[Rfam]
RNA sequence: UGUCAAGAGUCUUGGCGCCGUUUGGUGAGCAGAUUUCUAUUGCCUUAUUGAAGGUGACAAGAAAAUG
Dot-bracket structure: .........((((..((((.(((((((.((((.......)))).).))))))))))..)))).....

Shown here is a 67-nucleotide RNA sequence from Arminella tumorigenes, a member of the family "S-element". The family has 29 seed sequences and 231 matches in Rfam 15.1. Its family is annotated with mRNA transcription and translation regulator activity in the Gene Ontology. It scores 64 bits against the family's covariance model. The base pairs follow the family's consensus structure, which is taken from published work. Rfam describes the family as follows. This family represents a group of S-elements from p42d and related plasmids. The S-element has multiple functions and is believed to act as a negative regulator of repC transcription, be required for efficient replication and act as a translational enhancer of repC.